[Rfam]
RNA sequence: AACGAUAAACCCUUGUGUAAUAAACGGCUCGGACCCGGGGGCGGUACCCGGCGGCUCCACCAUAUUAACCAGCUCAUUUGGCUGUUGGAUUUGGGGCCGAAAUAGGAUCGACGGACGUGUAAAGACUUGUAUUUCGUUCGAAUGGGCCCCGUUAGAAGCCCAAUCGCAAAUAGUUGCAAAUGACAACUUUGCUGAAGGUGAGCUUCUCGCAGCGUAA
Number, nucleotide and partner (000 for none) at each position: 001a138002a137003c136004g135005a134006u000007a000008a000009a000010c000011c000012c000013u000014u000015g126016u125017g000018u000019a000020a000021u000022a000023a000024a000025c117026g116027g000028c000029u114030c113031g112032g000033a000034c000035c051036c050037g049038g048039g047040g000041g000042c000043g000044g000045u000046a000047c039048c038049c037050g036051g035052c099053g098054g097055c096056u095057c094058c093059a000060c000061c000062a000063u000064a000065u000066u000067a000068a000069c000070c000071a000072g000073c000074u000075c000076a000077u000078u000079u000080g000081g000082c000083u000084g000085u000086u000087g000088g000089a000090u000091u000092u000093g058094g057095g056096g055097c054098c053099g052100a000101a000102a000103u000104a000105g000106g000107a000108u000109c000110g000111a000112c031113g030114g029115a000116c026117g025118u000119g000120u000121a000122a000123a000124g000125a016126c015127u000128u000129g000130u000131a000132u000133u000134u005135c004136g003137u002138u001139c151140g150141a000142a000143u000144g000145g000146g000147c000148c000149c000150c140151g139152u000153u000154a000155g000156a000157a000158g000159c000160c000161c000162a000163a000164u000165c000166g000167c000168a000169a000170a000171u000172a000173g000174u000175u000176g000177c000178a000179a000180a000181u000182g000183a000184c000185a000186a000187c000188u000189u000190u000191g000192c000193u000194g000195a000196a000197g000198g000199u000200g000201a000202g000203c000204u000205u000206c000207u000208c000209g000210c000211a000212g000213c000214g000215u000216a000217a000
Description: The family of this 217-nucleotide sequence from Hirschia baltica is "permuted transfer-messenger RNA". A search with the family's covariance model found it, with a score of 129 bits. A reference for the family is Williams and Bartel (1996), "Phylogenetic analysis of tmRNA secondary structure", RNA.